[Rfam]
RNA sequence: UCAGAGGGUCGGGCGGCCGCCGCCUGCUUGCGAAAGCGGGGGGAGGAAAGUCCGGGCUCCACGGAACGACGGUGGCGGGUAAUGCCCGCCGGGGGUGACCCCAGGGAAAGUGCCACAGAGAGCAGACCGCCCACUGUCCCGGUUCGCCGGGGUAAGGGCAAGGGUGAAAGGGUGCGGCAAGAGCGCACCGCGCGACCGGUAACGGAAGCGGCUUGGUAAACCCCACCGGGAGCAAGACCGAAUAGGGACGGCACAUGCGCCUCGUUUCGGCGCGUCGUCCGGGUUGGUUGCUGGAGCGGCGGAGCGAUCCGUCGCCUAGAGGAAUGGUCGCCUAUCCUUCGCAAGAGGGUGGACAGAACCCGGCUUACAGACCCUCUGGCAUU
Numbered sequence: 001u002c003a004g005a006g007g008g009u010c011g012g013g014c015g016g017c018c019g020c021c022g023c024c025u026g027c028u029u030g031c032g033a034a035a036g037c038g039g040g041g042g043g044a045g046g047a048a049a050g051u052c053c054g055g056g057c058u059c060c061a062c063g064g065a066a067c068g069a070c071g072g073u074g075g076c077g078g079g080u081a082a083u084g085c086c087c088g089c090c091g092g093g094g095g096u097g098a099c100c101c102c103a104g105g106g107a108a109a110g111u112g113c114c115a116c117a118g119a120g121a122g123c124a125g126a127c128c129g130c131c132c133a134c135u136g137u138c139c140c141g142g143u144u145c146g147c148c149g150g151g152g153u154a155a156g157g158g159c160a161a162g163g164g165u166g167a168a169a170g171g172g173u174g175c176g177g178c179a180a181g182a183g184c185g186c187a188c189c190g191c192g193c194g195a196c197c198g199g200u201a202a203c204g205g206a207a208g209c210g211g212c213u214u215g216g217u218a219a220a221c222c223c224c225a226c227c228g229g230g231a232g233c234a235a236g237a238c239c240g241a242a243u244a245g246g247g248a249c250g251g252c253a254c255a256u257g258c259g260c261c262u263c264g265u266u267u268c269g270g271c272g273c274g275u276c277g278u279c280c281g282g283g284u285u286g287g288u289u290g291c292u293g294g295a296g297c298g299g300c301g302g303a304g305c306g307a308u309c310c311g312u313c314g315c316c317u318a319g320a321g322g323a324a325u326g327g328u329c330g331c332c333u334a335u336c337c338u339u340c341g342c343a344a345g346a347g348g349g350u351g352g353a354c355a356g357a358a359c360c361c362g363g364c365u366u367a368c369a370g371a372c373c374c375u376c377u378g379g380c381a382u383u
Base pairs, nucleotide, nucleotide: 001379002378003377004376005375006374007373008372009371010370011368012332013331014330015329016328017327018326020043021042023040024039025038026037027036028035048366049365050364052363053362054361055360056359057232058231059230060229065266066265067264068263070228071227072226073225074224075089076088077087078086079085090104091102092101093100094099105223106222110221111220112217113216114215127163128162129159130158131157134156135155138152139151171189172188173187174186175185176184190212191210192209193208196205197204198203236289237288238287239286246280247279248278249277250276251275257273258272259271260270261269296315297314298313299312300311301310302309303308
RNA: Bacterial RNase P class A